[Rfam]
RNA sequence: AGAUUCCUGCGGGGUGCGUGACGGCUCCACUUAAACCCACAUUAUAACUACGGGACGCUGUACUUCCGCUGCGGAUUGCAGGCCUCCCGCCCGUGCUCAGACAUUGCGGCGGACGUUGGAAGCGGUGAGGCAGCGGAGAGGCGACCCACCUGCCGUUUCGUGCAGGUUAUAAUUGGGGCUGCACGGCCAGUGCAGGUUAUAA
Numbered sequence: 001a002g003a004u005u006c007c008u009g010c011g012g013g014g015u016g017c018g019u020g021a022c023g024g025c026u027c028c029a030c031u032u033a034a035a036c037c038c039a040c041a042u043u044a045u046a047a048c049u050a051c052g053g054g055a056c057g058c059u060g061u062a063c064u065u066c067c068g069c070u071g072c073g074g075a076u077u078g079c080a081g082g083c084c085u086c087c088c089g090c091c092c093g094u095g096c097u098c099a100g101a102c103a104u105u106g107c108g109g110c111g112g113a114c115g116u117u118g119g120a121a122g123c124g125g126u127g128a129g130g131c132a133g134c135g136g137a138g139a140g141g142c143g144a145c146c147c148a149c150c151u152g153c154c155g156u157u158u159c160g161u162g163c164a165g166g167u168u169a170u171a172a173u174u175g176g177g178g179c180u181g182c183a184c185g186g187c188c189a190g191u192g193c194a195g196g197u198u199a200u201a202a
Stems, first nucleotide, its partner, number of pairs: 002200001006196006013188003017185003034168004052147003056143004061138001066136007078123002083119002087115001